RNA sequence: AUGUUUAGGUGCUGGGGACCACCCUGUGUUUUCUGAUGUUUUGAACAGUGAACACAGCUGGUGGUAUCUCAGUAGCUUUACAUUA
Number, nucleotide and partner (000 for none) at each position: 001a000002u000003g000004u000005u000006u000007a000008g076009g000010u074011g073012c072013u000014g000015g070016g068017g067018a065019c064020c000021a062022c061023c060024c057025u056026g055027u000028g053029u000030u051031u050032u000033c000034u000035g000036a000037u000038g000039u000040u000041u000042u000043g000044a000045a000046c000047a000048g000049u000050g031051a030052a000053c028054a000055c026056a025057g024058c000059u000060g023061g022062u021063g000064g019065u018066a000067u017068c016069u000070c015071a000072g012073u011074a010075g000076c008077u000078u000079u000080a000081c000082a000083u000084u000085a000
mir-317 microRNA precursor family: an 85-nucleotide RNA from Photinus pyralis. Pairs were carried over by alignment from the consensus structure, which was predicted with RNAalifold. For this family Rfam cites "Systematic discovery and characterization of fly microRNAs using 12 Drosophila genomes" (Stark et al., Genome Res, 2007). Rfam 15.1 lists 153 matches to the family in 144 species. A search with the family's covariance model found it, with a score of 60 bits.